[Rfam]
RNA sequence: GGACACGCUCGCUGUAAAUUGUAGCUACAAAGCGUAUUAUUUGAACAGCUUGGUGUUACUUCUUACAGUGAGUGUUUCC
Numbered sequence: 001g002g003a004c005a006c007g008c009u010c011g012c013u014g015u016a017a018a019u020u021g022u023a024g025c026u027a028c029a030a031a032g033c034g035u036a037u038u039a040u041u042u043g044a045a046c047a048g049c050u051u052g053g054u055g056u057u058a059c060u061u062c063u064u065a066c067a068g069u070g071a072g073u074g075u076u077u078c079c
Base pairs, nucleotide, nucleotide: 006074007073008072009071010070011069012068013067015065016064017063026055027054028053030051031050032049033048